A member of the RNA family "mir-399 microRNA precursor family" from Paspalum vaginatum, 174 nucleotides long.
RNA sequence: ACAUGAAUUACAGGGCAGAUCUCCUUUGGCACGGAUGUAUGCAACAGAAUGCACACAUUCAUAUGCUAAUCAGGGAAGGGUAAGCUUGAUUGGGAGCUGAAGUUGCAAUCCAAAUUGUGCAAAUAUGACAUUAUCCCUGUGCGUGCCAAAGGAGAAUUGCCCUGCGAUUCUAGG
Dot-bracket structure: ....(((((.((((((((..((((..(((((((.(((....................................................................................................))).)))))))..))))..)))))))).)))))....

It scores 65 bits against the family's covariance model.
Rfam describes the family as follows. mir-399 was identified in both Arabidopsis thaliana and Oryza sativa computationally and was later experimentally verified. mir-399 is thought to target mRNAs coding for a phosphatase transporter.